[Rfam]
RNA sequence: UCCGGUCCUCGGUAGUGGUCUCCGGAGCCUCGCUCCGUGGUCCUCGAUCGAAGACCGCC
Numbered sequence: 001u002c003c004g005g006u007c008c009u010c011g012g013u014a015g016u017g018g019u020c021u022c023c024g025g026a027g028c029c030u031c032g033c034u035c036c037g038u039g040g041u042c043c044u045c046g047a048u049c050g051a052a053g054a055c056c057g058c059c
Base pairs, nucleotide, nucleotide: 003057004056005055006054007053009051010050011049012048013047017043018042020040021039023037024036025035026034027033028032

Annotation
Actino-pnp RNA: a 59-nucleotide RNA from Cellulomonas gilvus. The base pairs follow the family's consensus structure, which is taken from published work.